[Rfam]
Overview
The family of this 89-nucleotide RNA sequence is "c-di-GMP-II-GAG riboswitch aptamer". Rfam's curators put it in the seed alignment. A reference for the family is Weinberg et al. (2017), "Bioinformatic analysis of riboswitch structures uncovers variant classes with altered ligand specificity", Proc Natl Acad Sci U S A.

RNA sequence: UCACACGGUGGUGGCGUAGAUCCGCUCGGCGAACUCUCGGUCGCCGGAUGUCGAGCGGCUAGUCAGUGGCGAGACCGACCUCCCUGGAA
Numbered sequence: 001u002c003a004c005a006c007g008g009u010g011g012u013g014g015c016g017u018a019g020a021u022c023c024g025c026u027c028g029g030c031g032a033a034c035u036c037u038c039g040g041u042c043g044c045c046g047g048a049u050g051u052c053g054a055g056c057g058g059c060u061a062g063u064c065a066g067u068g069g070c071g072a073g074a075c076c077g078a079c080c081u082c083c084c085u086g087g088a089a
Stems, first nucleotide, its partner, number of pairs: 001089001004086002007083002010080002013064003022058008039076002041072005